The record is a 62-nucleotide RNA sequence from Hucho hucho, which matches "mir-2187 microRNA precursor family" in Rfam. The family has 2 seed sequences and 208 matches in Rfam 15.1.
RNA sequence: UUAAUUAGUAUAGCCUGUUUAAGUGAUCUAAAUAAUUCUUUACAGGCUAUGCUAAUCUGGGC
Numbered sequence: 001u002u003a004a005u006u007a008g009u010a011u012a013g014c015c016u017g018u019u020u021a022a023g024u025g026a027u028c029u030a031a032a033u034a035a036u037u038c039u040u041u042a043c044a045g046g047c048u049a050u051g052c053u054a055a056u057c058u059g060g061g062c
Base pairs, nucleotide, nucleotide: 004056005055006054007053008052009051010050011049012048013047014046015045016044017043018042024034025033027031
Pairs were carried over by alignment from the consensus structure, which was predicted with RNAalifold.
Rfam links the family to the GO terms miRNA-mediated post-transcriptional gene silencing and RISC complex.